Shown here is a 264-nucleotide part of an RNA from Candidatus Syntropharchaeum butanivorans, a member of the family "Archaeal large subunit ribosomal RNA".
The literature on the family includes a 2001 paper in Science by Yusupov et al., "Crystal structure of the ribosome at 5.5 A resolution".
[Rfam]
RNA sequence: GAGUGUAUCCGAAUGGCGAGGUUAAGACCUUGAAGGUUGAAGCCGAAGGGAAACCAACAGGCGCGCAAACCCUUUGGGUUGAGGCGCGACGUAUACAAGUGCGUGGAGUCAUUAGGAUACGACCCGAAACCGGGCGAUCUAGGCGUGGGCAGGUUGAAGCGUGGCGAAAGCUGCGUGGAGGACCGAAGCGGUACUGAUGUGCAAAUCGUUCGUGUGACCUGCGUCUAGGGGUGAAAGUUCAAUCGAGCCCGGAGAUAGCUGGUU
Numbered sequence: 001g002a003g004u005g006u007a008u009c010c011g012a013a014u015g016g017c018g019a020g021g022u023u024a025a026g027a028c029c030u031u032g033a034a035g036g037u038u039g040a041a042g043c044c045g046a047a048g049g050g051a052a053a054c055c056a057a058c059a060g061g062c063g064c065g066c067a068a069a070c071c072c073u074u075u076g077g078g079u080u081g082a083g084g085c086g087c088g089a090c091g092u093a094u095a096c097a098a099g100u101g102c103g104u105g106g107a108g109u110c111a112u113u114a115g116g117a118u119a120c121g122a123c124c125c126g127a128a129a130c131c132g133g134g135c136g137a138u139c140u141a142g143g144c145g146u147g148g149g150c151a152g153g154u155u156g157a158a159g160c161g162u163g164g165c166g167a168a169a170g171c172u173g174c175g176u177g178g179a180g181g182a183c184c185g186a187a188g189c190g191g192u193a194c195u196g197a198u199g200u201g202c203a204a205a206u207c208g209u210u211c212g213u214g215u216g217a218c219c220u221g222c223g224u225c226u227a228g229g230g231g232u233g234a235a236a237g238u239u240c241a242a243u244c245g246a247g248c249c250c251g252g253a254g255a256u257a258g259c260u261g262g263u264u
Stems, first nucleotide, its partner, number of pairs: 005120006012113006020044004026038004048055002061087004068080004090103004123262002126259001130252006139228011150216001152184004159176007188213004193209002196207002230240002

Annotation: Taxonomically the source falls in Candidatus Syntropharchaeum (Archaea, Methanobacteriati, Halobacteriota, Candidatus Syntropharchaeales). A search with the family's covariance model found it, with a score of 2967 bits.